[Rfam]
RNA sequence: AUUCAGGCGCGCUAGGGUUCCGGUCCACCACGGUGGACGCUGGUCCGAGAGCACGCCGGCCUCCGGGACGGGGGUUACACGGCGGGACAAAAGCCCGGGAGAU
Numbered sequence: 001a002u003u004c005a006g007g008c009g010c011g012c013u014a015g016g017g018u019u020c021c022g023g024u025c026c027a028c029c030a031c032g033g034u035g036g037a038c039g040c041u042g043g044u045c046c047g048a049g050a051g052c053a054c055g056c057c058g059g060c061c062u063c064c065g066g067g068a069c070g071g072g073g074g075u076u077a078c079a080c081g082g083c084g085g086g087a088c089a090a091a092a093g094c095c096c097g098g099g100a101g102a103u
Stems, first nucleotide, its partner, number of pairs: 007056003011052002015046002020043002022040001023038006058076008078098001080101001084096003
Source information:
Guanidine-I riboswitch aptamer: a 103-nucleotide RNA from Plasticicumulans acidivorans. The pairing is the family consensus, mapped onto this sequence. Rfam's curators write: This family represents a conserved RNA structure found upstream of the ykkC and yxkD genes in Bacillus subtilis and related genes in other bacteria. The function of this family is unclear although it has been suggested that it may function to switch on efflux pumps and detoxification systems in response to harmful environmental molecules.